The family of this 43-nucleotide RNA from Orthoflavivirus denguei is "Flavivirus capsid hairpin cHP". The base pairs follow the family's consensus structure, which is taken from published work. It is one of the family's seed sequences. From the family's description: cHP is a conserved RNA hairpin structure identified within the capsid coding region of several Flavivirus genomes. For this family Rfam cites "RNA secondary structure in the coding region of dengue virus type 2 directs translation start codon selection and is required for viral replication" (Clyde and Harris, J Virol, 2006).
[Rfam]
RNA sequence: AUGAAUAACCAACGAAAAAAGGCGAGAAGUACGCCUUUCAAUG
Numbered sequence: 001a002u003g004a005a006u007a008a009c010c011a012a013c014g015a016a017a018a019a020a021g022g023c024g025a026g027a028a029g030u031a032c033g034c035c036u037u038u039c040a041a042u043g
Stems, first nucleotide, its partner, number of pairs: 018038001020036005
Dot-bracket structure: .................(.(((((.......))))).).....